[Rfam]
RNA sequence: CAUGUCGAGAAGCGUUGCGACCAGGAAUUCCCUCCUGGCCAGGCUCGACCUGAUCAGAACGAAACGACGCUUGCAUCCC
Numbered sequence: 001c002a003u004g005u006c007g008a009g010a011a012g013c014g015u016u017g018c019g020a021c022c023a024g025g026a027a028u029u030c031c032c033u034c035c036u037g038g039c040c041a042g043g044c045u046c047g048a049c050c051u052g053a054u055c056a057g058a059a060c061g062a063a064a065c066g067a068c069g070c071u072u073g074c075a076u077c078c079c
Base pairs, nucleotide, nucleotide: 002051004049005048006047007046008045021038022037023036024035025034026033